[Rfam]
RNA sequence: GGACGUGAGGGCGAUCUGGCUGCGACAUCUGUCACCCCAUUGAUCGCCAGGGUUGAUUCGGCUGAUCUGGCUGGCUAGACGGGUGUCCCCUUCCUGCCCCACCGCUCCAUGUCCGUCCCUCCCGAAACUGCGCGCUCGGUCAAAGAGGACAACCUUCCCCGGUAGAGGCGUACCAUUCAUCGGUCCAAGGGUAUAUGGUAGCUGCGCUCCCCUGCUAGAACCUCCAAACAAGCUGUGAUUCUGUGAUUCUCUCUCUCUCCCUUUUCCCUUUCCCUUUCCCUUCGGGUGGCGGGGGGGGUUACCAGAGAGCAUCUGCCACAGGU
Numbered sequence: 001g002g003a004c005g006u007g008a009g010g011g012c013g014a015u016c017u018g019g020c021u022g023c024g025a026c027a028u029c030u031g032u033c034a035c036c037c038c039a040u041u042g043a044u045c046g047c048c049a050g051g052g053u054u055g056a057u058u059c060g061g062c063u064g065a066u067c068u069g070g071c072u073g074g075c076u077a078g079a080c081g082g083g084u085g086u087c088c089c090c091u092u093c094c095u096g097c098c099c100c101a102c103c104g105c106u107c108c109a110u111g112u113c114c115g116u117c118c119c120u121c122c123c124g125a126a127a128c129u130g131c132g133c134g135c136u137c138g139g140u141c142a143a144a145g146a147g148g149a150c151a152a153c154c155u156u157c158c159c160c161g162g163u164a165g166a167g168g169c170g171u172a173c174c175a176u177u178c179a180u181c182g183g184u185c186c187a188a189g190g191g192u193a194u195a196u197g198g199u200a201g202c203u204g205c206g207c208u209c210c211c212c213u214g215c216u217a218g219a220a221c222c223u224c225c226a227a228a229c230a231a232g233c234u235g236u237g238a239u240u241c242u243g244u245g246a247u248u249c250u251c252u253c254u255c256u257c258u259c260c261c262u263u264u265u266c267c268c269u270u271u272c273c274c275u276u277u278c279c280c281u282u283c284g285g286g287u288g289g290c291g292g293g294g295g296g297g298g299u300u301a302c303c304a305g306a307g308a309g310c311a312u313c314u315g316c317c318a319c320a321g322g323u
Base pairs, nucleotide, nucleotide: 001108002107003106005102006101007100009098010097013093014092018090019089024087025086026085027084028083029082030081031080032079033078035074036073037070038069039068042067043066044065045064046062047061048060117170118168119167120166121165122139123138124137125136128134140162141161147158148157149156201303203301207297208296210294211293212292213291214290215289222286223285224284230282231281
7SK RNA: a 323-nucleotide RNA sequence from Nyctibius bracteatus. For this family Rfam cites "Transcription: surprising role for an elusive small nuclear RNA" (Blencowe, Curr Biol, 2002).